[Rfam]
This 120-nucleotide RNA from Glycine max belongs to the Rfam family "MIR1520 microRNA precursor family". The family's consensus secondary structure was predicted with RNAalifold. It scores 126 bits against the family's covariance model. Clan: MIR1520 microRNA precursor clan. NCBI's taxonomy places the organism under Eukaryota, Pentapetalae, Fabaceae, Papilionoideae, Glycine subgen. Soja. Its family is annotated with RISC complex and miRNA-mediated post-transcriptional gene silencing in the Gene Ontology.
RNA sequence: UUCUUAUUGGAUGAUGAUCGUCACGUGUCAUGUUCUGAUUGGAUGUCAAUUCCAUGAAAGAUGAGAUGCAUUAUUGUUUUCAUUGAUCAAUCAAAACAUGACACGUGGCAGUCAUCAUCC
Numbered sequence: 001u002u003c004u005u006a007u008u009g010g011a012u013g014a015u016g017a018u019c020g021u022c023a024c025g026u027g028u029c030a031u032g033u034u035c036u037g038a039u040u041g042g043a044u045g046u047c048a049a050u051u052c053c054a055u056g057a058a059a060g061a062u063g064a065g066a067u068g069c070a071u072u073a074u075u076g077u078u079u080u081c082a083u084u085g086a087u088c089a090a091u092c093a094a095a096a097c098a099u100g101a102c103a104c105g106u107g108g109c110a111g112u113c114a115u116c117a118u119c120c
Stems, first nucleotide, its partner, number of pairs: 020109004025104002029100003033096002036093001038091003